A member of the RNA family "Small nucleolar RNA Z266" from Lupinus angustifolius, 102 nucleotides long. The match comes from Rfam's covariance-model search (68 bits). The family's consensus secondary structure was predicted with PFOLD. Gene Ontology terms of the family: nucleolus and RNA processing. It is annotated as a C/D-box small nucleolar RNA. The literature on the family includes a 2003 paper in Nucleic Acids Res by Chen et al., "The high diversity of snoRNAs in plants: identification and comparative study of 120 snoRNA genes from Oryza sativa".
RNA sequence: UAGAGGGCAAGAAUGAUGAUUCAAUUAGAUGUGUGAAAGGUGAAUUCCUUUUUGAACUCACAAUUUUGAGGCAUAUCCAUUCAUAUACCUGACUUGCUGCUA
Numbered sequence: 001u002a003g004a005g006g007g008c009a010a011g012a013a014u015g016a017u018g019a020u021u022c023a024a025u026u027a028g029a030u031g032u033g034u035g036a037a038a039g040g041u042g043a044a045u046u047c048c049u050u051u052u053u054g055a056a057c058u059c060a061c062a063a064u065u066u067u068g069a070g071g072c073a074u075a076u077c078c079a080u081u082c083a084u085a086u087a088c089c090u091g092a093c094u095u096g097c098u099g100c101u102a
Base pairs, nucleotide, nucleotide: 001102002101003100005098007097008096009095010094011093